[Rfam]
RNA: SAM (S-adenosyl methionine) riboswitch aptamer
RNA sequence: GGUCAUGAGUGUCAGCGUCAAGCCCCGGCUCGCUGACCGGCAACCCUCCUCCGCGGUGGGGUGCCCCGGGUGAAGACCAGGCCGUGCGGAUACCCCGUUCGGCAAGUGCGGACU
Numbered sequence: 001g002g003u004c005a006u007g008a009g010u011g012u013c014a015g016c017g018u019c020a021a022g023c024c025c026c027g028g029c030u031c032g033c034u035g036a037c038c039g040g041c042a043a044c045c046c047u048c049c050u051c052c053g054c055g056g057u058g059g060g061g062u063g064c065c066c067c068g069g070g071u072g073a074a075g076a077c078c079a080g081g082c083c084g085u086g087c088g089g090a091u092a093c094c095c096c097g098u099u100c101g102g103c104a105a106g107u108g109c110g111g112a113c114u
Base pairs, nucleotide, nucleotide: 001078002077003076004075009038011037012036013035014034015033016032021030022029039065040064041063044061045060046059048056049055081103082102083101084100086098087097088096089095